[Rfam]
Shown here is an 84-nucleotide RNA sequence from Ricinus communis, a member of the family "mir-156 microRNA precursor family". A reference for the family is Ambros (2001), "microRNAs: tiny regulators with great potential", Cell. A search with the family's covariance model found it, with a score of 77 bits. This family represents the plant microRNA (miRNA) precursor mir-156.
RNA sequence: GUGACAGAAGAGAGUGAGCACACAUGGUACUUUCCUGCAUGAAUUCAUGCUCGAAGCCUUGCGUGCUUACUCUCUAUCUGUCAC
Numbered sequence: 001g002u003g004a005c006a007g008a009a010g011a012g013a014g015u016g017a018g019c020a021c022a023c024a025u026g027g028u029a030c031u032u033u034c035c036u037g038c039a040u041g042a043a044u045u046c047a048u049g050c051u052c053g054a055a056g057c058c059u060u061g062c063g064u065g066c067u068u069a070c071u072c073u074c075u076a077u078c079u080g081u082c083a084c
Stems, first nucleotide, its partner, number of pairs: 001084008010074012023061002